[Rfam]
Record summary:
This 68-nucleotide RNA from Alkalibacillus haloalkaliphilus belongs to the Rfam family "Bacillaceae-1 RNA". The source organism's lineage runs through Bacteria, Bacillota, Bacilli, Bacillaceae and Alkalibacillus.

RNA sequence: GGCGACGCCAGGUCGGCUAAAAGCGGCCACGUCCUGUGUCCAACGCCGACAUUAGACCAUCCAGGCCA
Numbered sequence: 001g002g003c004g005a006c007g008c009c010a011g012g013u014c015g016g017c018u019a020a021a022a023g024c025g026g027c028c029a030c031g032u033c034c035u036g037u038g039u040c041c042a043a044c045g046c047c048g049a050c051a052u053u054a055g056a057c058c059a060u061c062c063a064g065g066c067c068a
Stems, first nucleotide, its partner, number of pairs: 012050006026040001028038003055067001057065002